[Rfam]
RNA sequence: GGCCCGCAGAGCUUAACCCGCACACGUAUCGACACGAUUUCCUGGGUGCCCGCAAGGGUUGGAGAUUGGGAUGCGUGGAGGCCUAAC
Numbered sequence: 001g002g003c004c005c006g007c008a009g010a011g012c013u014u015a016a017c018c019c020g021c022a023c024a025c026g027u028a029u030c031g032a033c034a035c036g037a038u039u040u041c042c043u044g045g046g047u048g049c050c051c052g053c054a055a056g057g058g059u060u061g062g063a064g065a066u067u068g069g070g071a072u073g074c075g076u077g078g079a080g081g082c083c084u085a086a087c
Stems, first nucleotide, its partner, number of pairs: 023077008035068008048059004
Dot-bracket structure: ......................((((((((....((((((((.....((((....)))).)))))))).))))))))..........
This 87-nucleotide RNA sequence belongs to the Rfam family "t44 RNA".